RNA sequence: GAAGCAGACCAGGUGGUCGCCGCCCGCAAGGGGGGAGGAAAGUCCGGGCUCCACAGGGCAUGACGCUGGAUAACGUCCAGCGGGGGCAACCCCAGGGAAAGUGCCACAGAGAGAAGUCCGCCUGUCGGAAGCGUGCGAAGACAGGUAAGGGUGAAAGGGUGAGGUAAGAGCUCACCGGAUCCGGCGGUGACGUCGGAUGCCAGGUAAACCCCGUCAGGAGCAAGACCAAAUAGGGAAGCGUCAAGGACGGCCCGUCCGUGCUUCCGGGUUGGUUGCUUGAGGCCGUCGGUAACGACGGUCCUAGAUGAAUGGCCGCCGCCUGCUUCAGGGAAACCUGUUGCAGGAACAGAACCCGGCUUAUGGGCUGCUUCGGCC
Numbered sequence: 001g002a003a004g005c006a007g008a009c010c011a012g013g014u015g016g017u018c019g020c021c022g023c024c025c026g027c028a029a030g031g032g033g034g035g036a037g038g039a040a041a042g043u044c045c046g047g048g049c050u051c052c053a054c055a056g057g058g059c060a061u062g063a064c065g066c067u068g069g070a071u072a073a074c075g076u077c078c079a080g081c082g083g084g085g086g087c088a089a090c091c092c093c094a095g096g097g098a099a100a101g102u103g104c105c106a107c108a109g110a111g112a113g114a115a116g117u118c119c120g121c122c123u124g125u126c127g128g129a130a131g132c133g134u135g136c137g138a139a140g141a142c143a144g145g146u147a148a149g150g151g152u153g154a155a156a157g158g159g160u161g162a163g164g165u166a167a168g169a170g171c172u173c174a175c176c177g178g179a180u181c182c183g184g185c186g187g188u189g190a191c192g193u194c195g196g197a198u199g200c201c202a203g204g205u206a207a208a209c210c211c212c213g214u215c216a217g218g219a220g221c222a223a224g225a226c227c228a229a230a231u232a233g234g235g236a237a238g239c240g241u242c243a244a245g246g247a248c249g250g251c252c253c254g255u256c257c258g259u260g261c262u263u264c265c266g267g268g269u270u271g272g273u274u275g276c277u278u279g280a281g282g283c284c285g286u287c288g289g290u291a292a293c294g295a296c297g298g299u300c301c302u303a304g305a306u307g308a309a310u311g312g313c314c315g316c317c318g319c320c321u322g323c324u325u326c327a328g329g330g331a332a333a334c335c336u337g338u339u340g341c342a343g344g345a346a347c348a349g350a351a352c353c354c355g356g357c358u359u360a361u362g363g364g365c366u367g368c369u370u371c372g373g374c375c
Stems, first nucleotide, its partner, number of pairs: 001371007009363003012317007020035002023032003040359003044356005049220004056253004061216005066080005081095001082093004096211002101209002103205003118150002120146007158176006178200001179198008224274004234265006245257004281300008

Bacterial RNase P class A: a 375-nucleotide RNA from Geotalea daltonii. The match comes from Rfam's covariance-model search (321 bits). Lineage of the source: Bacteria > Thermodesulfobacteriota > Geobacteraceae > Geotalea > Geotalea daltonii. Pairs were carried over by alignment from the consensus structure, which is taken from published work. By type it is a ribozyme. Gene Ontology terms of the family: tRNA processing, dimeric ribonuclease P complex and ribonuclease P activity.